[Rfam]
RNA sequence: AGAAGUUUGAGAGGAGCUAACCUUAGUACGAGAGGACCAGGUUGGGUAAACCGCUGGUGUAUCAGUUGUGACGUCAGUUGCACCGCUGAGUAGCUAUGUUUAUAAGAGAUAAGCGCUGAAAGCAUCUAAGCACGAAACUUUCCUCAAGAUGAGACUUCUUUAAGGAUGGUUAAAGAUGAUGACCUUGAUAGGUUACAAGUGUAAAGUCAGAAAUGGCAAAGCUGAGUAAUACUAAUUAUCCGAAU
Numbered sequence: 001a002g003a004a005g006u007u008u009g010a011g012a013g014g015a016g017c018u019a020a021c022c023u024u025a026g027u028a029c030g031a032g033a034g035g036a037c038c039a040g041g042u043u044g045g046g047u048a049a050a051c052c053g054c055u056g057g058u059g060u061a062u063c064a065g066u067u068g069u070g071a072c073g074u075c076a077g078u079u080g081c082a083c084c085g086c087u088g089a090g091u092a093g094c095u096a097u098g099u100u101u102a103u104a105a106g107a108g109a110u111a112a113g114c115g116c117u118g119a120a121a122g123c124a125u126c127u128a129a130g131c132a133c134g135a136a137a138c139u140u141u142c143c144u145c146a147a148g149a150u151g152a153g154a155c156u157u158c159u160u161u162a163a164g165g166a167u168g169g170u171u172a173a174a175g176a177u178g179a180u181g182a183c184c185u186u187g188a189u190a191g192g193u194u195a196c197a198a199g200u201g202u203a204a205a206g207u208c209a210g211a212a213a214u215g216g217c218a219a220a221g222c223u224g225a226g227u228a229a230u231a232c233u234a235a236u237u238a239u240c241c242g243a244a245u
Base pairs, nucleotide, nucleotide: 001159002158003157004156005155006154007153008152011145012144013143014142017045018044019043020042021041022040023039046103047102048101049100050099051098055096056095057094062089063088064087065086066085067082068081069080070079071078072077106140107139108138113133115131116130117129164241165240166239167238168184169183170182171181172180189234190233191232192230193229194228195227196226198223199222202218206217207216208215209214
A member of the RNA family "Bacterial large subunit ribosomal RNA" from Candidatus Cardinium hertigii, 245 nucleotides of a longer RNA. Rfam links the family to the GO terms ribosome and structural constituent of ribosome.